[Rfam]
RNA: Histidine operon leader
Organism: Mergibacter septicus
RNA sequence: UCAUCACCAUCAUUUACCUGAAUAAUCUUUCAGGCAUUUGGUGUUGCUUGGAAGAUCAGUUCUUCCGAGCGUGCGAUAGUAAAAUUAAAGAAAAACCCCCUCGGAAGGCAACUACCGAGGGGGUUUUUUU
Dot-bracket structure: .......((.((....(((((........)))))....))....))((((((((.......))))))))......................(((((((((((((.((....)).)))))))))))))...